Shown here is a 328-nucleotide RNA from Oxalobacter vibrioformis, a member of the family "Bacterial RNase P class A". Lineage of the source: Bacteria > Pseudomonadota > Betaproteobacteria > Burkholderiales > Oxalobacter. Rfam classes the family as a ribozyme.

RNA sequence: AAAGCAAGCCAGACAGCCGCUGGUCACAAUCGUGACGGGAGGAAGGUCCGGACACCACAGGGCAGGGUGACGGCUAACGGCCGUCCGCUGAAAGCCGCAAGGUAUAAGGCGAGGAAAAGGGCCACAGAGACGAGCGUAUUAAGUUACGGUGAAACGCGGUAACCUCCACCUGGUGCAAUUCCAAGUAGGCACGCAAUGAGGCGGCCCGUUAAGCGUGCGGGUAGGAAGCUCGAGUGUCGGAGUAAUCCGGCGCCUAGAUGAAUGGCUGUCAUAGCAACCGGUUUUCCGGUUGCCGUAACAGAAUCCGGCCUAUCGGCUUGCUUUUACU
Numbered sequence: 001a002a003a004g005c006a007a008g009c010c011a012g013a014c015a016g017c018c019g020c021u022g023g024u025c026a027c028a029a030u031c032g033u034g035a036c037g038g039g040a041g042g043a044a045g046g047u048c049c050g051g052a053c054a055c056c057a058c059a060g061g062g063c064a065g066g067g068u069g070a071c072g073g074c075u076a077a078c079g080g081c082c083g084u085c086c087g088c089u090g091a092a093a094g095c096c097g098c099a100a101g102g103u104a105u106a107a108g109g110c111g112a113g114g115a116a117a118a119g120g121g122c123c124a125c126a127g128a129g130a131c132g133a134g135c136g137u138a139u140u141a142a143g144u145u146a147c148g149g150u151g152a153a154a155c156g157c158g159g160u161a162a163c164c165u166c167c168a169c170c171u172g173g174u175g176c177a178a179u180u181c182c183a184a185g186u187a188g189g190c191a192c193g194c195a196a197u198g199a200g201g202c203g204g205c206c207c208g209u210u211a212a213g214c215g216u217g218c219g220g221g222u223a224g225g226a227a228g229c230u231c232g233a234g235u236g237u238c239g240g241a242g243u244a245a246u247c248c249g250g251c252g253c254c255u256a257g258a259u260g261a262a263u264g265g266c267u268g269u270c271a272u273a274g275c276a277a278c279c280g281g282u283u284u285u286c287c288g289g290u291u292g293c294c295g296u297a298a299c300a301g302a303a304u305c306c307g308g309c310c311u312a313u314c315g316g317c318u319u320g321c322u323u324u325u326a327c328u
Base pairs, nucleotide, nucleotide: 001324002323003322004321005320006319007318008317009316010315011313012270013269014268015267016266017265018264020039021038023036024035025034026033027032044311045310046309048308049307050306051305052304053175054174055173056172060207061206062205063204065171066170067169068168069167070084071083072082073081074080085113086111087110088109089108114166115165119164120163121160122159123158135148136147137146138145179227180226181225182224189218190217191216192215193214194213200210201209202208234253235252236251237250238249239248240247241246
Dot-bracket structure: ((((((((((((((((((.((.(((((....))))).))....[[[.[[[[[((((...[[[[.((((((((((.....)))))(((((..................)))).)((...(((((...........((((......)))).........)))..)))))))))))))...((((......((((((.....(((.]]]])))..)))))).....))))......((((((((....))))))))..........))))))).................................]]]]]]]].).))))))))))....